[Rfam]
RNA sequence: AAAAAUCCCCAUUAUUGCAGUAGUCCCCCAUCCUGGGGCUACUUUACCAUAUUCAGAAUUU
Numbered sequence: 001a002a003a004a005a006u007c008c009c010c011a012u013u014a015u016u017g018c019a020g021u022a023g024u025c026c027c028c029c030a031u032c033c034u035g036g037g038g039c040u041a042c043u044u045u046a047c048c049a050u051a052u053u054c055a056g057a058a059u060u061u
Stems, first nucleotide, its partner, number of pairs: 017045001019043009
The record is a 61-nucleotide RNA from Auxenochlorella protothecoides, which matches "Plastid-psbN 5UTR RNA" in Rfam. A search with the family's covariance model found it, with a score of 66 bits. About the family: Plastid psbN is a non-coding RNA (ncRNA) recognised in plastids. It was reported as a conserved 11 stem-loop in the prime untranslated region (5UTR) of psbN genes. It has been reported that the motif is retained in a subset of mature transcripts in barley, which can suggests a possible role in transcript alternative 5 prime processing. On this family, see Richter et al., Plant Commun 2023: "Retrograde signaling in plants: A critical review focusing on the GUN pathway and beyond". Pairs were carried over by alignment from the consensus structure, which was predicted with LocARNA. The family's RNA type in Rfam is cis-regulatory element.